Annotation:
Rfam assigns this 211-nucleotide RNA from Nitrosomonas europaea to the family "Proteobacterial sRNA psRNA2". The family's RNA type in Rfam is small RNA. A reference for the family is Gvakharia et al. (2010), "Computational prediction and transcriptional analysis of sRNAs in Nitrosomonas europaea", FEMS Microbiol Lett. A search with the family's covariance model found it, with a score of 137 bits.

RNA sequence: GGAUUACUCCUUUACGCUUUCGCGUUUGGUUGAUAAAGAUUCGCACCUCUAUCAAACCGGGUAAUCCCACCUCUUGGCAAGACCUGCUGUCAGAUCAAAUCUGAACUACUACAACUUAACCUUACACGUGCCGUACAACUGUGCAUUGAUAUUGGCAGCCAUAUUCUCAGCCAUACCAAUUGCCCGGCACCACAAACUAUGGGUAGUGUAU
Numbered sequence: 001g002g003a004u005u006a007c008u009c010c011u012u013u014a015c016g017c018u019u020u021c022g023c024g025u026u027u028g029g030u031u032g033a034u035a036a037a038g039a040u041u042c043g044c045a046c047c048u049c050u051a052u053c054a055a056a057c058c059g060g061g062u063a064a065u066c067c068c069a070c071c072u073c074u075u076g077g078c079a080a081g082a083c084c085u086g087c088u089g090u091c092a093g094a095u096c097a098a099a100u101c102u103g104a105a106c107u108a109c110u111a112c113a114a115c116u117u118a119a120c121c122u123u124a125c126a127c128g129u130g131c132c133g134u135a136c137a138a139c140u141g142u143g144c145a146u147u148g149a150u151a152u153u154g155g156c157a158g159c160c161a162u163a164u165u166c167u168c169a170g171c172c173a174u175a176c177c178a179a180u181u182g183c184c185c186g187g188c189a190c191c192a193c194a195a196a197c198u199a200u201g202g203g204u205a206g207u208g209u210a211u
Stems, first nucleotide, its partner, number of pairs: 001067007009060002014025004028058004032053004037048002075161003081156001084154001089106002091103005108150001110148002113146001177208002181205005